Rfam assigns this 109-nucleotide sequence from a Mycobacteriales bacterium to the family "ZMP/ZTP riboswitch aptamer (pfl RNA motif)".
[Rfam]
RNA sequence: GUGAGCGAUCGCUACUGGCGCUGACGUGCGGCUGUGAACGCAGAGCGUACGAGAGGGUGGAGCACCACCGGGGAGCGAAGUUUCGGCACCGUGCGCCUGGGUGUCGCGU
Numbered sequence: 001g002u003g004a005g006c007g008a009u010c011g012c013u014a015c016u017g018g019c020g021c022u023g024a025c026g027u028g029c030g031g032c033u034g035u036g037a038a039c040g041c042a043g044a045g046c047g048u049a050c051g052a053g054a055g056g057g058u059g060g061a062g063c064a065c066c067a068c069c070g071g072g073g074a075g076c077g078a079a080g081u082u083u084c085g086g087c088a089c090c091g092u093g094c095g096c097c098u099g100g101g102u103g104u105c106g107c108g109u
Base pairs, nucleotide, nucleotide: 003084004083005082009078010077011076012075015072016071017097018096019095020094021093057068058067059066060065086104087103088102089101090100